RNA sequence: CGACUGUCACAACGGCUUCCUGGCGUGACGGCGAUAACAUCAAUGGAGCA
Numbered sequence: 001c002g003a004c005u006g007u008c009a010c011a012a013c014g015g016c017u018u019c020c021u022g023g024c025g026u027g028a029c030g031g032c033g034a035u036a037a038c039a040u041c042a043a044u045g046g047a048g049c050a
Stems, first nucleotide, its partner, number of pairs: 004031007013022002015049003019046002

Record summary: This 50-nucleotide RNA sequence from Tropicibacter naphthalenivorans belongs to the Rfam family "SAM/SAH riboswitch aptamer". Rfam links the family to the GO terms S-adenosylmethionine metabolic process and regulation of gene expression. A reference for the family is Weickhmann et al. (2019), "The structure of the SAM/SAH-binding riboswitch", Nucleic Acids Res.